[Rfam]
Bacterial small signal recognition particle RNA: a 97-nucleotide sequence from a Solemya velesiana gill symbiont. The organism belongs to sulfur-oxidizing symbionts, within Bacteria. Rfam links the family to the GO terms signal recognition particle, plasma membrane targeting and SRP-dependent cotranslational protein targeting to membrane, signal sequence recognition. Rfam classes the family as a non-coding RNA gene.
RNA sequence: CAUCGGUCCCCUCGCAACGAUAAGCCGUGAACCCGGUCAGGCCCGGAAGGGAGCAGCCGCAGCGGUCGACUCGUGUGCCGGGGUGUGGCUGGUGCGG
Numbered sequence: 001c002a003u004c005g006g007u008c009c010c011c012u013c014g015c016a017a018c019g020a021u022a023a024g025c026c027g028u029g030a031a032c033c034c035g036g037u038c039a040g041g042c043c044c045g046g047a048a049g050g051g052a053g054c055a056g057c058c059g060c061a062g063c064g065g066u067c068g069a070c071u072c073g074u075g076u077g078c079c080g081g082g083g084u085g086u087g088g089c090u091g092g093u094g095c096g097g
Stems, first nucleotide, its partner, number of pairs: 004091005010083005015075001017074004024066005034059004042051003